Annotation:
The record is a 173-nucleotide RNA from Trinickia symbiotica, which matches "Burkholderia RNA 14" in Rfam. Rfam classes the family as a small RNA. Co-purified with Hfq, expression confirmed by Northern blot. Putative functional homologue of PA-SraF. Overlaps coding sequence. A search with the family's covariance model found it, with a score of 106 bits. Lineage of the source: Bacteria > Betaproteobacteria > Burkholderiales > Burkholderiaceae > Trinickia. The family's consensus secondary structure was predicted with RNAfold.

Nucleotides: 173
Stems, first nucleotide, its partner, number of pairs: 003054005008047003011043001013041001016038001021034001023031002056149002061143002069135002072133001074131002078093005094121002097118001100115001102114005157172002159169003
Number, partner (000 for none) and nucleotide at each position: 001000g002000u003054c004053g005052g006051c007050g008047u009046c010045g011043u012000c013041g014000a015000c016038g017000u018000g019000a020000a021034g022000a023031c024030g025000a026000g027000c028000g029000c030024c031023g032000u033000g034021c035000c036000g037000g038016u039000c040000g041013u042000c043011a044000c045010c046009g047008a048000g049000c050007u051006g052005c053004c054003g055000g056149g057148c058000a059000g060000a061143a062142c063000g064000a065000a066000u067000g068000c069135g070134u071000a072133c073000c074131u075130c076000g077000u078093c079092g080091c081090g082089c083000a084000g085000g086000u087000g088000c089082g090081c091080g092079c093078g094121c095120g096000c097118g098000u099000c100115g101000a102114c103113g104112g105111c106110a107000u108000c109000g110106u111105g112104c113103u114102g115100u116000c117000g118097c119000g120095c121094g122000a123000g124000u125000u126000c127000a128000c129000c130075g131074a132000a133072g134070g135069c136000a137000g138000c139000g140000a141000a142062g143061u144000g145000a146000a147000g148057g149056c150000g151000g152000g153000g154000c155000a156000g157172c158171g159169u160168c161167u162000c163000u164000a165000c166000a167161a168160g169159a170000u171158c172157g173000a